A member of the RNA family "mir-210 microRNA precursor family" from Aquarana catesbeiana, 99 nucleotides long.

[Rfam]
RNA sequence: UCCAGAAGCAGGUGAGCCACUGACUAACGCACAUUGCGCUGCUCUGUAAAUUCCACUGUGCGUGUGACAGCGGCUAACCAGCUUCUUGGAAUGACACUG
Numbered sequence: 001u002c003c004a005g006a007a008g009c010a011g012g013u014g015a016g017c018c019a020c021u022g023a024c025u026a027a028c029g030c031a032c033a034u035u036g037c038g039c040u041g042c043u044c045u046g047u048a049a050a051u052u053c054c055a056c057u058g059u060g061c062g063u064g065u066g067a068c069a070g071c072g073g074c075u076a077a078c079c080a081g082c083u084u085c086u087u088g089g090a091a092u093g094a095c096a097c098u099g
Stems, first nucleotide, its partner, number of pairs: 005085005011079002015075004020070003024066001025064002028062006035055002
On this family, see Cai et al., Proc Natl Acad Sci U S A 2005: "Kaposi's sarcoma-associated herpesvirus expresses an array of viral microRNAs in latently infected cells". The match comes from Rfam's covariance-model search (79 bits).